[Rfam]
ASpks TB sRNA: a 72-nucleotide RNA sequence from Rhodococcus oxybenzonivorans. It scores 72 bits against the family's covariance model. Pairs were carried over by alignment from the consensus structure, which is taken from published work. It is annotated as an antisense RNA. On this family, see Arnvig and Young, Mol Microbiol 2009: "Identification of small RNAs in Mycobacterium tuberculosis".
RNA sequence: CUUGACCGACCCGAGCCACAGCGGCCGUCCGUCCCGCUCCUGCCCGUACGCAGCCAGCAGUGCCUGCGCUUC
Numbered sequence: 001c002u003u004g005a006c007c008g009a010c011c012c013g014a015g016c017c018a019c020a021g022c023g024g025c026c027g028u029c030c031g032u033c034c035c036g037c038u039c040c041u042g043c044c045c046g047u048a049c050g051c052a053g054c055c056a057g058c059a060g061u062g063c064c065u066g067c068g069c070u071u072c
Base pairs, nucleotide, nucleotide: 015025016024017023033066035062036061040057041056042055044053046051
Lineage of the source: Bacteria > Bacillati > Actinomycetes > Mycobacteriales > Rhodococcus.